[Rfam]
RNA sequence: CAUUUCAAAUAUAUAAAGUUUCGUUUUUGGUCCUCAAUGUUUUGUUGUAGUCCACGCAAAAUAGAUUCAUGUUUAAAUUAGUCAUUGUAAUAUUUAUUUUAGUCCUUACUUUUGAAGACCAAAAUCAAAUAUUUUACAUAUUACAAGGACCAAUUCCAAUAUUAACCAAUUUUGUAAGGACCAAAAUAAAACAACAAGGACCAAAAGCAAAAUGUUAUAUAUUUGCAAGGA
Numbered sequence: 001c002a003u004u005u006c007a008a009a010u011a012u013a014u015a016a017a018g019u020u021u022c023g024u025u026u027u028u029g030g031u032c033c034u035c036a037a038u039g040u041u042u043u044g045u046u047g048u049a050g051u052c053c054a055c056g057c058a059a060a061a062u063a064g065a066u067u068c069a070u071g072u073u074u075a076a077a078u079u080a081g082u083c084a085u086u087g088u089a090a091u092a093u094u095u096a097u098u099u100u101a102g103u104c105c106u107u108a109c110u111u112u113u114g115a116a117g118a119c120c121a122a123a124a125u126c127a128a129a130u131a132u133u134u135u136a137c138a139u140a141u142u143a144c145a146a147g148g149a150c151c152a153a154u155u156c157c158a159a160u161a162u163u164a165a166c167c168a169a170u171u172u173u174g175u176a177a178g179g180a181c182c183a184a185a186a187u188a189a190a191a192c193a194a195c196a197a198g199g200a201c202c203a204a205a206a207g208c209a210a211a212a213u214g215u216u217a218u219a220u221a222u223u224u225g226c227a228a229g230g231a
Stems, first nucleotide, its partner, number of pairs: 006225008015216002019212003023208012038193009048183001051180002056175007066165002069162005078153002081150003088143006108125001110123003
A member of the RNA family "MIR2630 microRNA precursor family" from Trifolium subterraneum, 231 nucleotides long. Gene Ontology terms of the family: miRNA-mediated post-transcriptional gene silencing and RISC complex.